[Rfam]
The family of this 83-nucleotide sequence from Cyprinodon variegatus is "Small nucleolar RNA SNORD100". Lineage of the source: Eukaryota > Craniata > Actinopterygii > Clupeocephala > Cyprinodon. A reference for the family is Galardi et al. (2002), "Purified box C/D snoRNPs are able to reproduce site-specific 2'-O-methylation of target RNA in vitro", Mol Cell Biol. The family's consensus secondary structure was predicted with RNAalifold. Clan: SNORD100 clan.
RNA sequence: UGUAUCGAUGAUGAUAUUUAGGCUCCCUCUACUGAACACUGUGAGGAGAUUGCCUCUGUUACCCAAAUUCUGUCUGAGAUACU
Number, nucleotide and partner (000 for none) at each position: 001u000002g082003u081004a080005u079006c078007g000008a000009u000010g000011a000012u000013g000014a000015u000016a000017u000018u000019u000020a000021g000022g000023c000024u000025c000026c000027c000028u000029c000030u000031a000032c000033u000034g000035a000036a000037c000038a000039c000040u000041g000042u000043g000044a000045g000046g000047a000048g000049a000050u000051u000052g000053c000054c000055u000056c000057u000058g000059u000060u000061a000062c000063c000064c000065a000066a000067a000068u000069u000070c000071u000072g000073u000074c000075u000076g000077a000078g006079a005080u004081a003082c002083u000
It scores 77 bits against the family's covariance model.